[Rfam]
RNA sequence: GGCGCCGGCUCUACCCCCCCAGAGCCGGACCGUUAGACGGCCCCCGCUCUCCCCCCGGCGGGGGCCGUCCUUU
Dot-bracket structure: ((..(((((((..........)))))))..)..).(((((((((((((........)))))))))))))....

Rfam assigns this 73-nucleotide RNA from Halostreptopolyspora alba to the family "6C RNA". It is annotated as a cis-regulatory element.